[Rfam]
The record is a 527-nucleotide RNA sequence from Corynebacterium choanae, which matches "Bacterial RNase P class A" in Rfam. A reference for the family is Frank and Pace (1998), "Ribonuclease P: unity and diversity in a tRNA processing ribozyme", Annu Rev Biochem. The source organism's lineage runs through Bacteria, Bacillati, Mycobacteriales, Corynebacteriaceae and Corynebacterium.
RNA sequence: UGAGUCGGUUGGGCGAACGCGACUAGGCCGGUAUCGCCGUGUGUUUCUGCUGGGCAUUGGGGCAACCUGGUGUUGGAUGCUGGGCCACGGAGUGACCGGGAGUCGAGGAAAGUCCGGACUCCUGCCAACAACGGUGAUUGUUAACGGCAAUCCAGGGUGACCUGCGGGCUAGUGCAACAGAAAGUAGACCGCCAAGGAAACUUGGUAAGGGUGAAAGGGUGCGGUAAGAGCGCACCAGUGCGGUAGGUGACUGCUGUAGCUUGGUAAACCCCACCGGGAGCAAUGGAAGAGGUCGCCUGGUUCUUUUCGAAGGUCGGGUGGCUGCGCCCCAGCAGUGACUGUUCUGCCCAGGCUAUGCCUGGGGGAGGGUUCACGAAUGUUGGCUUCGUGGCAGCGUGAAGCUGCCACUGGGGCGGGUUCACUGCUUGAGAUGCCCCGGCAACGGGGCAUCCAGAUGGAUGUUCGCCACGAUGGUGCCGCCUGGCGGCGUCAUCGGACAGAAUCCGGCUUAUAGACUGGCUCAUUCG
Numbered sequence: 001u002g003a004g005u006c007g008g009u010u011g012g013g014c015g016a017a018c019g020c021g022a023c024u025a026g027g028c029c030g031g032u033a034u035c036g037c038c039g040u041g042u043g044u045u046u047c048u049g050c051u052g053g054g055c056a057u058u059g060g061g062g063c064a065a066c067c068u069g070g071u072g073u074u075g076g077a078u079g080c081u082g083g084g085c086c087a088c089g090g091a092g093u094g095a096c097c098g099g100g101a102g103u104c105g106a107g108g109a110a111a112g113u114c115c116g117g118a119c120u121c122c123u124g125c126c127a128a129c130a131a132c133g134g135u136g137a138u139u140g141u142u143a144a145c146g147g148c149a150a151u152c153c154a155g156g157g158u159g160a161c162c163u164g165c166g167g168g169c170u171a172g173u174g175c176a177a178c179a180g181a182a183a184g185u186a187g188a189c190c191g192c193c194a195a196g197g198a199a200a201c202u203u204g205g206u207a208a209g210g211g212u213g214a215a216a217g218g219g220u221g222c223g224g225u226a227a228g229a230g231c232g233c234a235c236c237a238g239u240g241c242g243g244u245a246g247g248u249g250a251c252u253g254c255u256g257u258a259g260c261u262u263g264g265u266a267a268a269c270c271c272c273a274c275c276g277g278g279a280g281c282a283a284u285g286g287a288a289g290a291g292g293u294c295g296c297c298u299g300g301u302u303c304u305u306u307u308c309g310a311a312g313g314u315c316g317g318g319u320g321g322c323u324g325c326g327c328c329c330c331a332g333c334a335g336u337g338a339c340u341g342u343u344c345u346g347c348c349c350a351g352g353c354u355a356u357g358c359c360u361g362g363g364g365g366a367g368g369g370u371u372c373a374c375g376a377a378u379g380u381u382g383g384c385u386u387c388g389u390g391g392c393a394g395c396g397u398g399a400a401g402c403u404g405c406c407a408c409u410g411g412g413g414c415g416g417g418u419u420c421a422c423u424g425c426u427u428g429a430g431a432u433g434c435c436c437c438g439g440c441a442a443c444g445g446g447g448c449a450u451c452c453a454g455a456u457g458g459a460u461g462u463u464c465g466c467c468a469c470g471a472u473g474g475u476g477c478c479g480c481c482u483g484g485c486g487g488c489g490u491c492a493u494c495g496g497a498c499a500g501a502a503u504c505c506g507g508c509u510u511a512u513a514g515a516c517u518g519g520c521u522c523a524u525u526c527g
Stems, first nucleotide, its partner, number of pairs: 001523010011512001012467007020105005110510003114507005119280004132276005137151005152166001153164004167271002172269002174265002189210002191206006218236006238260001239258008284421002292414003296410001391405004431450008